The record is a 36-nucleotide RNA from Chryseobacterium populi, which matches "DUF805b RNA" in Rfam. The source organism's lineage runs through Bacteria, Bacteroidota, Flavobacteriales, Weeksellaceae and Chryseobacterium. Rfam's curators put it in the seed alignment.

RNA sequence: AUGGCAAAUUCCGAAAAGCCAAUAAGAGAGUAGGAA
Numbered sequence: 001a002u003g004g005c006a007a008a009u010u011c012c013g014a015a016a017a018g019c020c021a022a023u024a025a026g027a028g029a030g031u032a033g034g035a036a
Stems, first nucleotide, its partner, number of pairs: 002021004010035003

The base pairs follow the family's consensus structure, which is taken from published work.